[Rfam]
Nucleotides: 122
Base pairs, nucleotide, nucleotide: 010072011071012070013069014068015067016066017065018064028041029040030039031038032037044059045058046057047056048055049054082122083121084120091115092114093112094111099106
Number, partner (000 for none) and nucleotide at each position: 001000u002000u003000u004000u005000c006000a007000u008000c009000c010072c011071u012070g013069u014068c015067a016066g017065a018064g019000g020000u021000a022000a023000a024000a025000a026000u027000a028041g029040c030039u031038g032037u033000a034000u035000a036000a037032a038031c039030g040029g041028c042000a043000c044059g045058u046057u047056c048055a049054c050000u051000u052000a053000a054049g055048u056047g057046a058045a059044c060000a061000u062000c063000a064018c065017u066016c067015u068014g069013a070012c071011a072010g073000a074000a075000u076000a077000c078000c079000c080000u081000g082122c083121u084120g085000u086000a087000c088000c089000c090000c091115u092114a093112c094111g095000a096000g097000u098000g099106u100000c101000u102000c103000a104000a105000a106099g107000a108000a109000a110000g111094c112093g113000g114092u115091g116000u117000a118000a119000c120084c121083a122082g
The family of this 122-nucleotide sequence from Yersinia enterocolitica is "Yersinia sRNA 100".
On this family, see Nuss et al., PLoS Genet 2015: "Transcriptomic profiling of Yersinia pseudotuberculosis reveals reprogramming of the Crp regulon by temperature and uncovers Crp as a master regulator of small RNAs".
It is one of the family's seed sequences.
Rfam links the family to the GO term protein binding.
The family's consensus secondary structure was predicted with RNAfold.
About the family: 5' located ORF: qor, 3' located ORF: pspG. Decreased expression in the crp mutant (in the stationary phase), suggesting CRP regulon is a regulator of the sRNA. CRP binding in a cAMP dependent manner was confirmed.